[Rfam]
A member of the RNA family "mir-36 microRNA precursor family" from Caenorhabditis brenneri, 102 nucleotides long. The family is grouped with related families in Rfam's "mir-36 clan". The family has 46 seed sequences and 199 matches in Rfam 15.1.

RNA sequence: UAUUCAAGGGUGGAUUGGACCUGUGCUGGUUUCCGCCACGGUGAUAUUUCUGAGUCAUGAUUAUCACCGGGUGAAAAUACGGCACAGGUCCAAUCCUCCCUU
Numbered sequence: 001u002a003u004u005c006a007a008g009g010g011u012g013g014a015u016u017g018g019a020c021c022u023g024u025g026c027u028g029g030u031u032u033c034c035g036c037c038a039c040g041g042u043g044a045u046a047u048u049u050c051u052g053a054g055u056c057a058u059g060a061u062u063a064u065c066a067c068c069g070g071g072u073g074a075a076a077a078u079a080c081g082g083c084a085c086a087g088g089u090c091c092a093a094u095c096c097u098c099c100c101u102u
Stems, first nucleotide, its partner, number of pairs: 016092007024084005029078004034073004039069001041067006